RNA sequence: AAACUCCCGUAGACUUGAAUCGAAGGGGCACUGCCCUUAUAGUGCAAAGCAUGGUUGUAAUUCCGGCAACCCGGAGACGUUCUGGACGCGGGUUCGAUUCCCGCCACCUCCACAGUGGGCAUUCUCAAGAGUGUUCAGUGUGGGGGUGCACCGGUUUCGACAGGGCGGGCAAUGGUGAGCAGGCAACCCGAGAGGCGACGGACGUAAUCCGCGCAAAUCCACAAACGCCAACGAUGAGCGUUUCGCUGUAGCCGCUUAAGGCAACAGCCGGGGCCGCCUGAGCCCUGUUACCAAAGACGGCUGGCGGGGGCUUCGGCCCCCGCUUCA
Numbered sequence: 001a002a003a004c005u006c007c008c009g010u011a012g013a014c015u016u017g018a019a020u021c022g023a024a025g026g027g028g029c030a031c032u033g034c035c036c037u038u039a040u041a042g043u044g045c046a047a048a049g050c051a052u053g054g055u056u057g058u059a060a061u062u063c064c065g066g067c068a069a070c071c072c073g074g075a076g077a078c079g080u081u082c083u084g085g086a087c088g089c090g091g092g093u094u095c096g097a098u099u100c101c102c103g104c105c106a107c108c109u110c111c112a113c114a115g116u117g118g119g120c121a122u123u124c125u126c127a128a129g130a131g132u133g134u135u136c137a138g139u140g141u142g143g144g145g146g147u148g149c150a151c152c153g154g155u156u157u158c159g160a161c162a163g164g165g166c167g168g169g170c171a172a173u174g175g176u177g178a179g180c181a182g183g184c185a186a187c188c189c190g191a192g193a194g195g196c197g198a199c200g201g202a203c204g205u206a207a208u209c210c211g212c213g214c215a216a217a218u219c220c221a222c223a224a225a226c227g228c229c230a231a232c233g234a235u236g237a238g239c240g241u242u243u244c245g246c247u248g249u250a251g252c253c254g255c256u257u258a259a260g261g262c263a264a265c266a267g268c269c270g271g272g273g274c275c276g277c278c279u280g281a282g283c284c285c286u287g288u289u290a291c292c293a294a295a296g297a298c299g300g301c302u303g304g305c306g307g308g309g310g311c312u313u314c315g316g317c318c319c320c321c322g323c324u325u326c327a
Base pairs, nucleotide, nucleotide: 053188054187055186056185057184063183064182066180067179069176070175071174078167079166080165081164082163083162084161088104089103090102091101092100105148106147107146108145109144110143111142189204190203271285272284273283274282276301277300278299306323308321309320310319
RNA: Betaproteobacteria transfer-messenger RNA
Organism: Aromatoleum aromaticum